[Rfam]
RNA: Y RNA
RNA sequence: GGUUGGUCCCCAGUAGGGUUUAAAAUGGGACAUUGGUGUUUACAACUAACUGACCCCAACCAGUUACAAAUUCCUUUGUUCCUUGUCCACUCCUACUGCUUCACUUGACCAGCCUUUA
Dot-bracket structure: ((((((((...((((((..........................(((.((.........................)).)))...........)))))).........))))))))....